[Rfam]
RNA sequence: ACCGUCCUUAUCUUGGGGUUGCGCGGCCGCUCGAUGAACGCGUGGUGAGAGCGGCACUGCUAACGCCUGAGCAACACACCGAGCGCCCGCGUGCGCGCGCGGCGCAAUUUUUGGAACC
Numbered sequence: 001a002c003c004g005u006c007c008u009u010a011u012c013u014u015g016g017g018g019u020u021g022c023g024c025g026g027c028c029g030c031u032c033g034a035u036g037a038a039c040g041c042g043u044g045g046u047g048a049g050a051g052c053g054g055c056a057c058u059g060c061u062a063a064c065g066c067c068u069g070a071g072c073a074a075c076a077c078a079c080c081g082a083g084c085g086c087c088c089g090c091g092u093g094c095g096c097g098c099g100c101g102g103c104g105c106a107a108u109u110u111u112u113g114g115a116a117c118c
Base pairs, nucleotide, nucleotide: 006018007017008016009015021060022059023058026055027054028053029052030051031050032049038046039045083105084104085103086102087101088099089098090097091096
Shown here is a 118-nucleotide sequence, a member of the family "U4atac minor spliceosomal RNA". On this family, see Lorkovic et al., RNA 2005: "Evolutionary conservation of minor U12-type spliceosome between plants and humans". The family's consensus secondary structure is taken from published work. Its Rfam clan is "U4 clan". Rfam classes the family as a spliceosomal small nuclear RNA. Rfam links the family to the GO terms mRNA 5'-splice site recognition, spliceosomal tri-snRNP complex assembly and U4atac snRNP.